[Rfam]
RNA: Bacterial large subunit ribosomal RNA, nucleotides 841 to 1271
Organism: Oxynema aestuarii
RNA sequence: CUCCCCGAAAUGCGUUGAGGCGCAGCGGUCGAAGAUGAUGACGAGGGGUAAAGCACUGUUUCGGUGCGGGCUGCGAGAGCGGUACCAAAUCGAGACAAACUCAGAAUACUCGUCAAGAAAGCGACCAGUGAGACGGUGGGGGAUAAGCUUCAUCGUCGAAAGGGAAACAGCCCAGACCACCAGCUAAGGUCCCCAAAUGACCGCUCAGUGAUUAAGGAGGUGAGAGUGCACAGACAACCAGGAGGUUGGCCUAGAAGCAGCCACCCUUGAAAGAGUGCGUAAUAGCUCACUGGUCAAGCGCUCUGGCGCCGAAAAUGAACGGGGCUAAGCGGUCUACCGAAGCUGUGGAACGAGCAAUCGUUGGUAGGGGAGCGUUCCCCGACGGGAGAAGCACUAGCGAGAGCAGGUGUGGACGUCGGGGAAGUGAGAAU
Number, nucleotide and partner (000 for none) at each position: 001c372002u371003c370004c369005c368006c367007g000008a000009a000010a000011u024012g023013c022014g021015u020016u000017g000018a000019g000020g015021c014022g013023c012024a011025g000026c128027g126028g125029u124030c123031g122032a000033a000034g000035a000036u119037g000038a000039u115040g114041a113042c112043g111044a110045g109046g000047g000048g000049u000050a000051a000052a101053g100054c000055a000056c000057u097058g096059u095060u000061u093062c092063g091064g090065u000066g000067c000068g086069g085070g083071c082072u081073g080074c079075g000076a000077g000078a000079g074080c073081g072082g071083u070084a000085c069086c068087a000088a000089a000090u064091c063092g062093a061094g000095a059096c058097a057098a000099a000100c053101u052102c000103a000104g000105a000106a000107u000108a000109c045110u044111c043112g042113u041114c040115a039116a000117g000118a000119a036120a000121g000122c031123g030124a029125c028126c027127a000128g026129u000130g000131a000132g157133a156134c155135g154136g153137u152138g151139g150140g149141g148142g000143a000144u000145a000146a000147g000148c141149u140150u139151c138152a137153u136154c135155g134156u133157c132158g000159a000160a000161a000162g173163g172164g171165a000166a000167a000168c000169a000170g000171c164172c163173c162174a000175g000176a000177c348178c347179a346180c345181c000182a344183g343184c342185u000186a000187a000188g338189g337190u336191c000192c000193c000194c000195a000196a000197a335198u000199g334200a333201c332202c331203g330204c329205u000206c000207a000208g000209u000210g000211a000212u000213u000214a000215a000216g310217g309218a000219g000220g307221u306222g000223a304224g303225a302226g301227u300228g299229c298230a000231c000232a000233g000234a000235c000236a000237a294238c293239c292240a291241g290242g000243a267244g266245g265246u000247u000248g262249g261250c260251c000252u000253a000254g000255a000256a000257g000258c000259a000260g250261c249262c248263a000264c000265c245266c244267u243268u272269g000270a000271a000272a268273g288274a000275g000276u000277g286278c285279g000280u000281a000282a000283u000284a000285g278286c277287u000288c273289a000290c241291u240292g239293g238294u237295c000296a000297a000298g229299c228300g227301c226302u225303c224304u223305g000306g221307c220308g000309c217310c216311g000312a000313a000314a000315a000316u000317g000318a000319a000320c000321g000322g000323g000324g000325c000326u000327a000328a000329g204330c203331g202332g201333u200334c199335u197336a190337c189338c188339g000340a000341a000342g184343c183344u182345g180346u179347g178348g177349a362350a361351c360352g359353a358354g000355c000356a000357a000358u353359c352360g351361u350362u349363g000364g000365u000366a000367g006368g005369g004370g003371a002372g001373c426374g000375u423376u422377c421378c420379c419380c418381g417382a416383c415384g414385g000386g000387a000388g000389a000390a000391g410392c409393a408394c407395u406396a000397g404398c403399g000400a000401g000402a000403g398404c397405a000406g395407g394408u393409g392410u391411g000412g000413a000414c384415g383416u382417c381418g380419g379420g378421g377422a376423a375424g000425u000426g373427a000428g000429a000430a000431u000